The record is a 134-nucleotide RNA from Shewanella sp. P1-14-1, which matches "Molybdenum/Tungsten riboswitch aptamer (Moco RNA motif)" in Rfam.

RNA sequence: AGGUUGACGGUUCUCCGAGCUCUAUAUCCUACGUCCACAGAUACGGGUAUUUAGCCGUGGUAAUAAUGCCACCGGGGUGAGUAAAGAAAUGCGCUUACCUCCCACACUUGGAAAGGUUAACAUGUCCCAACUAC
Numbered sequence: 001a002g003g004u005u006g007a008c009g010g011u012u013c014u015c016c017g018a019g020c021u022c023u024a025u026a027u028c029c030u031a032c033g034u035c036c037a038c039a040g041a042u043a044c045g046g047g048u049a050u051u052u053a054g055c056c057g058u059g060g061u062a063a064u065a066a067u068g069c070c071a072c073c074g075g076g077g078u079g080a081g082u083a084a085a086g087a088a089a090u091g092c093g094c095u096u097a098c099c100u101c102c103c104a105c106a107c108u109u110g111g112a113a114a115g116g117u118u119a120a121c122a123u124g125u126c127c128c129a130a131c132u133a134c
Stems, first nucleotide, its partner, number of pairs: 003128001006125001011120002015116002019055003024050006033042003057072005075100008085090001101111002
Dot-bracket structure: ..(..(....((..((..(((..((((((...(((....)))..))))))..))).(((((......)))))..((((((((..(....)..))))))))((.......))...))..))....)..)......
The match comes from Rfam's covariance-model search (87 bits). NCBI's taxonomy places the organism under Bacteria, Pseudomonadati, Gammaproteobacteria, Shewanellaceae, Shewanella. The literature on the family includes a 2008 paper in Mol Microbiol by Regulski et al., "in molybdenum cofactor and tungsten cofactor metabolism".